A member of the RNA family "GcvB RNA" from Gallibacterium salpingitidis, 204 nucleotides long. By type it is a non-coding RNA gene. It scores 98 bits against the family's covariance model.
RNA sequence: AGCUCCCUAGAAUGGGCGCAUACUUAAUGAUUGGUCAUUCCUUACUAGUUAAUGAGUUUCAGAUUCUUAAGUAUGAUGUUGUGUUUGCAUAUUAGUCUAGACUUUCUAGACUGAGUAACUGAGAAGUUACUCAUUUCACUUCCUGUAUAUUUUUAUAAACUGAAUUGUUUAUCUGCCACCUAACUAUUUAGGUGGCAUUUUUUU
Number, nucleotide and partner (000 for none) at each position: 001a000002g000003c000004u000005c000006c000007c000008u000009a067010g066011a065012a064013u000014g000015g000016g000017c000018g057019c056020a000021u000022a000023c000024u055025u054026a053027a000028u051029g050030a049031u048032u047033g046034g045035u044036c000037a042038u000039u000040c000041c000042u037043u000044a035045c034046u033047a032048g031049u030050u029051a028052a000053u026054g025055a024056g019057u018058u000059u000060c000061a000062g000063a000064u012065u011066c010067u009068u000069a000070a000071g000072u000073a000074u000075g000076a000077u000078g000079u000080u000081g000082u000083g000084u000085u000086u000087g000088c000089a000090u000091a000092u000093u113094a112095g111096u110097c109098u108099a107100g106101a000102c000103u000104u000105u000106c100107u099108a098109g097110a096111c095112u094113g093114a131115g130116u129117a128118a127119c126120u000121g000122a000123g000124a000125a000126g119127u118128u117129a116130c115131u114132c000133a000134u000135u000136u000137c000138a000139c000140u000141u000142c000143c000144u000145g000146u000147a000148u000149a169150u000151u167152u000153u000154u000155a000156u000157a000158a000159a000160c000161u000162g000163a000164a000165u000166u000167g151168u000169u149170u000171a000172u000173c000174u197175g196176c195177c194178a193179c192180c191181u190182a000183a000184c000185u000186a000187u000188u000189u000190a181191g180192g179193u178194g177195g176196c175197a174198u000199u000200u000201u000202u000203u000204u000